[Rfam]
RNA sequence: AAAAAAAAUUUUUUUCUUUUCCUUUUUUUUCUUCCCCCCCCCCCCUUUUUUUUAUAAAAAAAAGGGGGGGGGGGGAAGAAAAAAAAGGAAAAGAAAAAAAUUUUUUUUAAAAAAAAUUUUUUUCUU
Numbered sequence: 001a002a003a004a005a006a007a008a009u010u011u012u013u014u015u016c017u018u019u020u021c022c023u024u025u026u027u028u029u030u031c032u033u034c035c036c037c038c039c040c041c042c043c044c045c046u047u048u049u050u051u052u053u054a055u056a057a058a059a060a061a062a063a064g065g066g067g068g069g070g071g072g073g074g075g076a077a078g079a080a081a082a083a084a085a086a087g088g089a090a091a092a093g094a095a096a097a098a099a100a101u102u103u104u105u106u107u108u109a110a111a112a113a114a115a116a117u118u119u120u121u122u123u124c125u126u
Stems, first nucleotide, its partner, number of pairs: 013096004018091014033076004040069013097120010

Annotation: A member of the RNA family "Phenylalanine leader peptide" from Aptenodytes forsteri, 126 nucleotides long. Gene Ontology term of the family: cellular amino acid metabolic process. The family has 71 seed sequences and 379 matches in Rfam 15.1. Rfam classes the family as a cis-regulatory leader.